[Rfam]
RNA sequence: UGGGUUGUUGACUAAUAGGUAAGUCCCUGAAAUUUGACUUCAGUCUAUGUAAGUUCGAAUCUUACCAUCCCAU
Number, nucleotide and partner (000 for none) at each position: 001u072002g071003g070004g069005u000006u067007g066008u000009u000010g025011a024012c023013u022014a000015a000016u000017a000018g000019g000020u000021a000022a013023g012024u011025c010026c000027c043028u042029g041030a040031a039032a000033u000034u000035u000036g000037a000038c000039u031040u030041c029042a028043g027044u000045c000046u000047a000048u000049g065050u064051a063052a062053g061054u000055u000056c000057g000058a000059a000060u000061c053062u052063u051064a050065c049066c007067a006068u000069c004070c003071c002072a001073u000
Shown here is a 73-nucleotide sequence from Schizosaccharomyces pombe, a member of the family "tRNA". Rfam's curators put it in the seed alignment. A reference for the family is Hou (1993), "The tertiary structure of tRNA and the development of the genetic code", Trends Biochem Sci. The organism belongs to Schizosaccharomyces, within Eukaryota.